The record is an 82-nucleotide RNA sequence from Crocodylus porosus, which matches "Small nucleolar RNA SNORD121A" in Rfam. Taxonomically the source falls in Crocodylus (Eukaryota, Deuterostomia, Vertebrata, Teleostomi). Its family is annotated with RNA processing and nucleolus in the Gene Ontology.
[Rfam]
RNA sequence: GCCUGGAAACAAUGAUGUUGUAUUUUUCAAACACAUCUCUGACUGCUCUGUGGAAAUCCAGCUAUUUCUGCCUUUUCUGGGC
Numbered sequence: 001g002c003c004u005g006g007a008a009a010c011a012a013u014g015a016u017g018u019u020g021u022a023u024u025u026u027u028c029a030a031a032c033a034c035a036u037c038u039c040u041g042a043c044u045g046c047u048c049u050g051u052g053g054a055a056a057u058c059c060a061g062c063u064a065u066u067u068c069u070g071c072c073u074u075u076u077c078u079g080g081g082c
Base pairs, nucleotide, nucleotide: 001082002081003080004079005078006077007075008074009073
The literature on the family includes a 2006 paper in Nucleic Acids Res by Yang et al., "snoSeeker: an advanced computational package for screening of guide and orphan snoRNA genes in the human genome". It scores 47 bits against the family's covariance model. The family has 26 seed sequences and 881 matches in Rfam 15.1. By type it is a C/D-box small nucleolar RNA. The family's consensus secondary structure was predicted with WAR.